[Rfam]
RNA: U5 spliceosomal RNA
RNA sequence: GAGGAGUGGGACAAGCUAGUUCAGAACCCAUUUCUUGCCUUUUACCAGAGAUGGCCGUGGUUUGCCCACAAUACUCCUCUAUUGAAUCUUUGGACCUUCCCAUCGACACAGUUGU
Numbered sequence: 001g002a003g004g005a006g007u008g009g010g011a012c013a014a015g016c017u018a019g020u021u022c023a024g025a026a027c028c029c030a031u032u033u034c035u036u037g038c039c040u041u042u043u044a045c046c047a048g049a050g051a052u053g054g055c056c057g058u059g060g061u062u063u064g065c066c067c068a069c070a071a072u073a074c075u076c077c078u079c080u081a082u083u084g085a086a087u088c089u090u091u092g093g094a095c096c097u098u099c100c101c102a103u104c105g106a107c108a109c110a111g112u113u114g115u
Stems, first nucleotide, its partner, number of pairs: 003077004009067002012064007028054008094115001096114001099111001